[Rfam]
Nucleotides: 112
Stems, first nucleotide, its partner, number of pairs: 001112007013043005021032003026077004044069004049065002051062004073104001078101009
Number, partner (000 for none) and nucleotide at each position: 001112c002111g003110c004109u005108u006107a007106u008000g009000g010000a011000g012000a013043a014042a015041g016040a017039c018000g019000g020000a021032g022031g023030g024000a025000u026077u027076a028075g029074a030023c031022c032021c033000u034000g035000c036000g037000a038000u039017g040016u041015c042014u043013u044069a045068g046067c047066a048000a049065c050064c051062u052061g053060u054059u055000a056000c057000u058000u059054a060053a061052c062051a063000a064050g065049g066047u067046g068045c069044u070000a071000c072000a073104u074029u075028c076027u077026a078101c079100u080099c081098c082097g083096g084095u085094u086093a087000a088000a089000a090000g091000a092000a093086u094085a095084a096083c097082c098081g099080g100079g101078g102000a103000c104073a105000g106007a107006u108005a109004a110003g111002u112001g
The family of this 112-nucleotide RNA sequence from Mucilaginibacter terrigena is "SAM riboswitch aptamer (S box leader)". Taxonomically the source falls in Mucilaginibacter (Bacteria, Pseudomonadati, Sphingobacteriia, Sphingobacteriaceae). About the family: The SAM riboswitch is found upstream of a number of genes which code for proteins involved in methionine or cysteine biosynthesis in Gram-positive bacteria. The match comes from Rfam's covariance-model search (70 bits).